[Rfam]
RNA: Y RNA
RNA sequence: GGCUAGUCCGAGGGCAGUGGUGUCUACAACUAAUUGAUCACAGUGAGUUACAGAUUUCUUUGUUCCUUCUCUAUUCUCACUGCUUCCCUUGACUAGCCUUAU
Numbered sequence: 001g002g003c004u005a006g007u008c009c010g011a012g013g014g015c016a017g018u019g020g021u022g023u024c025u026a027c028a029a030c031u032a033a034u035u036g037a038u039c040a041c042a043g044u045g046a047g048u049u050a051c052a053g054a055u056u057u058c059u060u061u062g063u064u065c066c067u068u069c070u071c072u073a074u075u076c077u078c079a080c081u082g083c084u085u086c087c088c089u090u091g092a093c094u095a096g097c098c099u100u101a102u
Base pairs, nucleotide, nucleotide: 001098002097003096004095005094006093007092008091010090011089014086016081017080018079019078020077022076028064029063030062032060033059